[Rfam]
RNA: chrB-a RNA
Organism: Roseovarius albus
RNA sequence: GCCGUGGGGUCCGCGAAUGCCCCGUGAGGCUCAGGCUUAAAUUUCGCUUCCCAGAUCAACACAACAGGUCGCACUAUG
Numbered sequence: 001g002c003c004g005u006g007g008g009g010u011c012c013g014c015g016a017a018u019g020c021c022c023c024g025u026g027a028g029g030c031u032c033a034g035g036c037u038u039a040a041a042u043u044u045c046g047c048u049u050c051c052c053a054g055a056u057c058a059a060c061a062c063a064a065c066a067g068g069u070c071g072c073a074c075u076a077u078g
Stems, first nucleotide, its partner, number of pairs: 005024006046072002050068002